[Rfam]
RNA sequence: GGGGCCACCUCGGGGUGCCCGGUUCCGGCCGGCUGAGAUGCGCGAAGCGAACCCGUUGAACCUGAACCGGCUAACACCGGCGGAGGGAAGGUUUCAGCCCUGAGA
Numbered sequence: 001g002g003g004g005c006c007a008c009c010u011c012g013g014g015g016u017g018c019c020c021g022g023u024u025c026c027g028g029c030c031g032g033c034u035g036a037g038a039u040g041c042g043c044g045a046a047g048c049g050a051a052c053c054c055g056u057u058g059a060a061c062c063u064g065a066a067c068c069g070g071c072u073a074a075c076a077c078c079g080g081c082g083g084a085g086g087g088a089a090g091g092u093u094u095c096a097g098c099c100c101u102g103a104g105a
Base pairs, nucleotide, nucleotide: 007092008091009090010089011055012054013053014052016049017033018032019031021029042048043047061086062085063084067080068079069078070077